[Rfam]
RNA sequence: UAUUGGUUUAGUUAAGGGGCAUAAAUUAAUUUGGGUCAAAUGUUAUAUUUGAUCCUUAUUAUGCCAAGGCCUUUUUGAGGGGACUAUUGAUUGUCCUCCAAGCAGCCUUGGACAUUU
Dot-bracket structure: ...((.(((......))).))............(((((...........))))).........(((((((...((((.((((((.(....).))))))))))..)))))))......
Notes:
Small nucleolar RNA U19: a 117-nucleotide sequence from Chenopodium quinoa. The literature on the family includes a 2002 paper in Curr Biol by Marker et al., "Experimental RNomics: identification of 140 candidates for small non-messenger RNAs in the plant Arabidopsis thaliana". The family's consensus secondary structure was predicted with WAR. It scores 86 bits against the family's covariance model. Rfam classes the family as an H/ACA-box small nucleolar RNA. Rfam links the family to the GO terms nucleolus and RNA processing.